[Rfam]
RNA sequence: GGAAUAUAAGAAACCGUUUUUUAACUUUUAAUUAAAAAAACUAAGAACCGACUCUUAAAUAAGAUAUUUAAGAGCCGGUUCUUACUUUUUUAGUUAAAAGUUAAGAUACCAUUUCUUAUAAUCC
Numbered sequence: 001g002g003a004a005u006a007u008a009a010g011a012a013a014c015c016g017u018u019u020u021u022u023a024a025c026u027u028u029u030a031a032u033u034a035a036a037a038a039a040a041c042u043a044a045g046a047a048c049c050g051a052c053u054c055u056u057a058a059a060u061a062a063g064a065u066a067u068u069u070a071a072g073a074g075c076c077g078g079u080u081c082u083u084a085c086u087u088u089u090u091u092a093g094u095u096a097a098a099a100g101u102u103a104a105g106a107u108a109c110c111a112u113u114u115c116u117u118a119u120a121a122u123c124c
Stems, first nucleotide, its partner, number of pairs: 001124003005120009016109002019106021042084006
Dot-bracket structure: (((.(((((((((..((.(((((((((((((((((((((..((((((...............................)))))).))))))))))))))))))))).))..))))))))).)))
A member of the RNA family "MIR9563 microRNA precursor family" from Brassica cretica, 124 nucleotides long. The match comes from Rfam's covariance-model search (106 bits). Gene Ontology terms of the family: miRNA-mediated post-transcriptional gene silencing and RISC complex.